[Rfam]
RNA sequence: ACCUGUGAUGGGUCUUCACCAGAAGGUACACCGUCAUCCGCUCCCACUUCCCUGUCACCACCUCAGCAGGAGCCCAGUUCGAGUCUCGUGGUGUCCUGAUUAAUCCACUCACUUGGGUAACCAGUGAUGCUGGAAGGACCUAAGCAAUGAACGCAAUCUGACGAGGGAAGAAAUUCCGCAGUCGGGCAUUCACCAUGGGACGGCGGCGCUGGAUUACUCCCGUUAGGGUUGGGAGGUGUGGUGGUGGGCUGGUGUUAUCGACUGGUAUU
Numbered sequence: 001a002c003c004u005g006u007g008a009u010g011g012g013u014c015u016u017c018a019c020c021a022g023a024a025g026g027u028a029c030a031c032c033g034u035c036a037u038c039c040g041c042u043c044c045c046a047c048u049u050c051c052c053u054g055u056c057a058c059c060a061c062c063u064c065a066g067c068a069g070g071a072g073c074c075c076a077g078u079u080c081g082a083g084u085c086u087c088g089u090g091g092u093g094u095c096c097u098g099a100u101u102a103a104u105c106c107a108c109u110c111a112c113u114u115g116g117g118u119a120a121c122c123a124g125u126g127a128u129g130c131u132g133g134a135a136g137g138a139c140c141u142a143a144g145c146a147a148u149g150a151a152c153g154c155a156a157u158c159u160g161a162c163g164a165g166g167g168a169a170g171a172a173a174u175u176c177c178g179c180a181g182u183c184g185g186g187c188a189u190u191c192a193c194c195a196u197g198g199g200a201c202g203g204c205g206g207c208g209c210u211g212g213a214u215u216a217c218u219c220c221c222g223u224u225a226g227g228g229u230u231g232g233g234a235g236g237u238g239u240g241g242u243g244g245u246g247g248g249c250u251g252g253u254g255u256u257a258u259c260g261a262c263u264g265g266u267a268u269u
Stems, first nucleotide, its partner, number of pairs: 001013003018266005025259004029254004033249003038244004043240001045238008062228002065224003069220004074212005079206003083201009100138002104134004109127005115122002140144001148192004153187002158185005167176003
Rfam assigns this 269-nucleotide sequence from Clathrospora elynae to the family "Fungal signal recognition particle RNA". Rfam 15.1 lists 748 matches to the family in 741 species. Pairs were carried over by alignment from the consensus structure, which is taken from published work. Clan: SRP clan. For this family Rfam cites "Prediction of signal recognition particle RNA genes" (Regalia et al., Nucleic Acids Res, 2002). Rfam classes the family as a non-coding RNA gene.